[Rfam]
RNA sequence: UUAUUUAAAAAAUAAAAUAUCCAUAUAAUCCAAAUAAUAAGGUUUUGGAGUAUCUACAGGAAGCCAUAAACUUUCUACUAUGGGUAAAUCUUAAGUCAAU
Numbered sequence: 001u002u003a004u005u006u007a008a009a010a011a012a013u014a015a016a017a018u019a020u021c022c023a024u025a026u027a028a029u030c031c032a033a034a035u036a037a038u039a040a041g042g043u044u045u046u047g048g049a050g051u052a053u054c055u056a057c058a059g060g061a062a063g064c065c066a067u068a069a070a071c072u073u074u075c076u077a078c079u080a081u082g083g084g085u086a087a088a089u090c091u092u093a094a095g096u097c098a099a100u
Base pairs, nucleotide, nucleotide: 018086019085020084021083022082023081024080025079029049030048031047032046033045034044058076059075060074061073062072063071

The family of this 100-nucleotide sequence from Clostridium oryzae is "Purine riboswitch aptamer". NCBI's taxonomy places the organism under Bacteria, Clostridia, Eubacteriales, Clostridiaceae, Clostridium. It scores 76 bits against the family's covariance model. The base pairs follow the family's consensus structure, which is taken from published work.